[Rfam]
RNA sequence: UUACAAGGUAUUUAAACGCUUUCAAAAAAAGGAAAGCCAAUACUAUGUGAAAUGGGGUAUGGGAGAUGGGAACAAUCGUAUGCCAGGACUGCAAUUCAACUAUAAGUACUUUUCAUGAUGAAAAGGUAACGACUUUGUAUGGCAAGUGUACGAAUUGCGGCUGCCAUAACGAAAAAAUAGAAAAAAGAUCUUAACAGGUCAAAAAGGGGUAUUAUUUUAUAUAAAAGGAAGCAUGUAACGAAAGGGGCGUUACAUGCUUUUUU
Dot-bracket structure: ...............((.((((..(..(..((((......(((.......................(((....(....(..............))....)))...))).))))..)..)..))))))...................................................................................................(((((((((((((.........)))))))))))))..